[Rfam]
RNA: Small nucleolar RNA snR4
Organism: Torulaspora delbrueckii
RNA sequence: AACUAUUACAGUCGAUGAUGAUGGGUUAUAGUCUUUGACAUCUGUGCUCUGACGAGCUGUAGUCACCACCUGGCGCAGUUAUCGAGCGAUAGUUGUGUUGGUCGUUGGUCGAUGUGGAUUGUGCCGUGGCCUACUUCACCACCUUAAUAGCGGUACUUUGAUUAAAAUCAACUGAGACUG
Numbered sequence: 001a002a003c004u005a006u007u008a009c010a011g012u013c014g015a016u017g018a019u020g021a022u023g024g025g026u027u028a029u030a031g032u033c034u035u036u037g038a039c040a041u042c043u044g045u046g047c048u049c050u051g052a053c054g055a056g057c058u059g060u061a062g063u064c065a066c067c068a069c070c071u072g073g074c075g076c077a078g079u080u081a082u083c084g085a086g087c088g089a090u091a092g093u094u095g096u097g098u099u100g101g102u103c104g105u106u107g108g109u110c111g112a113u114g115u116g117g118a119u120u121g122u123g124c125c126g127u128g129g130c131c132u133a134c135u136u137c138a139c140c141a142c143c144u145u146a147a148u149a150g151c152g153g154u155a156c157u158u159u160g161a162u163u164a165a166a167a168u169c170a171a172c173u174g175a176g177a178c179u180g
Stems, first nucleotide, its partner, number of pairs: 009180005016138003020134001023132006029121005039114004056063002065109004070104001071100007079092005141154003